RNA sequence: CCCACGGCUUACGCCGUGGGCUACUAUCUAUCGCCCCUCCGGGGCU
Numbered sequence: 001c002c003c004a005c006g007g008c009u010u011a012c013g014c015c016g017u018g019g020g021c022u023a024c025u026a027u028c029u030a031u032c033g034c035c036c037c038u039c040c041g042g043g044g045c046u
Base pairs, nucleotide, nucleotide: 001020002019003018004017005016006015007014008013033045034044035043036042037041
Overview:
Acido-Lenti-1 RNA: a 46-nucleotide RNA sequence from Planctomycetaceae bacterium SCGC AG-212-F19. NCBI's taxonomy places the organism under Bacteria, Pseudomonadati, Planctomycetia, Planctomycetales, Planctomycetaceae. The base pairs follow the family's consensus structure, which is taken from published work.